A member of the RNA family "ASdes TB sRNA" from Actinocrinis puniceicyclus, 68 nucleotides long. Taxonomically the source falls in Actinocrinis (Bacteria, Actinomycetes, Catenulisporales, Actinospicaceae).
RNA sequence: AGGGCGACCGGGUCGACCGCGCGCGUGGUCAGCAGGUAGUCGCGGAUCGCCGUGCCGUGCCGCCCCUC
Numbered sequence: 001a002g003g004g005c006g007a008c009c010g011g012g013u014c015g016a017c018c019g020c021g022c023g024c025g026u027g028g029u030c031a032g033c034a035g036g037u038a039g040u041c042g043c044g045g046a047u048c049g050c051c052g053u054g055c056c057g058u059g060c061c062g063c064c065c066c067u068c
Base pairs, nucleotide, nucleotide: 004063005062006061008059011030012029013028016026017025035056036055037054038053040052042050043049044048
Dot-bracket structure: ...(((.(..(((..((.......)).)))....((((.(.(((...))).)))))..).))).....
The family's RNA type in Rfam is small RNA.